[Rfam]
RNA sequence: AAGCAUCACUAGGGGAGUCCUUUACGGACUGAGAUGGAGUUUCCAGACCCUUUGAACCUGAUCUGGGUGAAACCAGCGGAGGGAAGUGGCCGAUAUGAAUA
Numbered sequence: 001a002a003g004c005a006u007c008a009c010u011a012g013g014g015g016a017g018u019c020c021u022u023u024a025c026g027g028a029c030u031g032a033g034a035u036g037g038a039g040u041u042u043c044c045a046g047a048c049c050c051u052u053u054g055a056a057c058c059u060g061a062u063c064u065g066g067g068u069g070a071a072a073c074c075a076g077c078g079g080a081g082g083g084a085a086g087u088g089g090c091c092g093a094u095a096u097g098a099a100u101a
Stems, first nucleotide, its partner, number of pairs: 006089005011051004017029004036044003057082003063076004
The family of this 101-nucleotide RNA sequence from Sediminibacillus albus is "TPP riboswitch aptamer (THI element)". The base pairs follow the family's consensus structure, which is taken from published work. The match comes from Rfam's covariance-model search (75 bits).